About this RNA:
Small nucleolar RNA SNORD17: a 254-nucleotide sequence from Phrynocephalus forsythii. Rfam classes the family as a C/D-box small nucleolar RNA. Its family is annotated with nucleolus and RNA processing in the Gene Ontology. Taxonomically the source falls in Phrynocephalus (Eukaryota, Craniata, Euteleostomi, Toxicofera). The literature on the family includes a 2001 paper in EMBO J by Huttenhofer et al., "RNomics: an experimental approach that identifies 201 candidates for novel, small, non-messenger RNAs in mouse". Rfam's curators write: The snoRNA HBI-43 belongs to the C/D family of snoRNAs, guiding 2'O-ribose methylation at position U3797 of the 28S rRNA. Pseudouridylation in position U3797 is predicted to be guided by the H/ACA snoRNA ACA48.
RNA sequence: GUGAAGUGAUGAUGAAGUUUAUCCAUUCUCUGAGUGCUGCUGCCGCUCUGCCCUUCCUGCCACAUUCAGAUCCCUGUUCUAGGGUUUUGUGUGUUGUGUGGCUUCCAGGCCUCUUUGCGUCUUCCAGCGUUCUGCUGGGGGCCCGCAGGGAAGUUUGGCCGGCUGCCGGCAGGGCCUGGGCAGCGCGAGCAGGGCCAGAGCCCCUCCUUAGAGGGGCUUUGGCUCAACCAAGAAGAAUGAAACGGUCUGAUCAC
Numbered sequence: 001g002u003g004a005a006g007u008g009a010u011g012a013u014g015a016a017g018u019u020u021a022u023c024c025a026u027u028c029u030c031u032g033a034g035u036g037c038u039g040c041u042g043c044c045g046c047u048c049u050g051c052c053c054u055u056c057c058u059g060c061c062a063c064a065u066u067c068a069g070a071u072c073c074c075u076g077u078u079c080u081a082g083g084g085u086u087u088u089g090u091g092u093g094u095u096g097u098g099u100g101g102c103u104u105c106c107a108g109g110c111c112u113c114u115u116u117g118c119g120u121c122u123u124c125c126a127g128c129g130u131u132c133u134g135c136u137g138g139g140g141g142c143c144c145g146c147a148g149g150g151a152a153g154u155u156u157g158g159c160c161g162g163c164u165g166c167c168g169g170c171a172g173g174g175c176c177u178g179g180g181c182a183g184c185g186c187g188a189g190c191a192g193g194g195c196c197a198g199a200g201c202c203c204c205u206c207c208u209u210a211g212a213g214g215g216g217c218u219u220u221g222g223c224u225c226a227a228c229c230a231a232g233a234a235g236a237a238u239g240a241a242a243c244g245g246u247c248u249g250a251u252c253a254c
Base pairs, nucleotide, nucleotide: 010253011252012251013250017246018245019244024239025238026237027236028235029234030232031231034228035227042190043189046185048183049182050181051180052179053178056174057173058172059170060169062094063093064092065091067089068088069086070085071084072083074082075081098166099165100164101163102162103161111153112152113150116147117146118145119144121141122140123139124138125137126136127135128134129133192225193224194223195222196221197220198219199218201216202215203214204213205212